The record is a 277-nucleotide RNA sequence from Nannospalax galili, which matches "Mason-Pfizer monkey virus packaging signal" in Rfam. Taxonomically the source falls in Nannospalax (Eukaryota, Gnathostomata, Teleostomi, Euteleostomi). From the family's description: This family represents a group of sequences that are related to the Mason-Pfizer monkey virus (MPMV) packaging signal. The packaging signal is located in the 5' UTR and is required for specific RNA encapsidation.
RNA sequence: UGGUGCCCAAUGUGGGGCUGGAUACUGGGGGCAUCUUGUGAGGGAGAUGAUGGAAAAAGGAAGGAGUGCACUCGUUCAAUUUCAAGUAGUUUGGAGAUGCGCCAUGGGAGCCUGCCGCGACCAGAAGGUAAGUUGUGCCGUCCAAUCAUGGGGCAAGAAUUGAGGCAGCAUCAGAUCUAUGUCAAGCAAUUGAGAGAGGCUCUAAAGACAUGAGGAGUAAAGGUUAGGACUGCGGAUUUAUUUCAUUUCUUUGAUUUUGUAAAGGACAUUUGUGCCU
Numbered sequence: 001u002g003g004u005g006c007c008c009a010a011u012g013u014g015g016g017g018c019u020g021g022a023u024a025c026u027g028g029g030g031g032c033a034u035c036u037u038g039u040g041a042g043g044g045a046g047a048u049g050a051u052g053g054a055a056a057a058a059g060g061a062a063g064g065a066g067u068g069c070a071c072u073c074g075u076u077c078a079a080u081u082u083c084a085a086g087u088a089g090u091u092u093g094g095a096g097a098u099g100c101g102c103c104a105u106g107g108g109a110g111c112c113u114g115c116c117g118c119g120a121c122c123a124g125a126a127g128g129u130a131a132g133u134u135g136u137g138c139c140g141u142c143c144a145a146u147c148a149u150g151g152g153g154c155a156a157g158a159a160u161u162g163a164g165g166c167a168g169c170a171u172c173a174g175a176u177c178u179a180u181g182u183c184a185a186g187c188a189a190u191u192g193a194g195a196g197a198g199g200c201u202c203u204a205a206a207g208a209c210a211u212g213a214g215g216a217g218u219a220a221a222g223g224u225u226a227g228g229a230c231u232g233c234g235g236a237u238u239u240a241u242u243u244c245a246u247u248u249c250u251u252u253g254a255u256u257u258u259g260u261a262a263a264g265g266a267c268a269u270u271u272g273u274g275c276c277u
Base pairs, nucleotide, nucleotide: 006031007030008029012025013024014023036050037049038048039047086129087128090126091125103119105117106116107115136155137154138153141152142151143150144149161204162203164200166198211253212252213251214250215249216248217247221239222238223237224236225235262277264275266273267272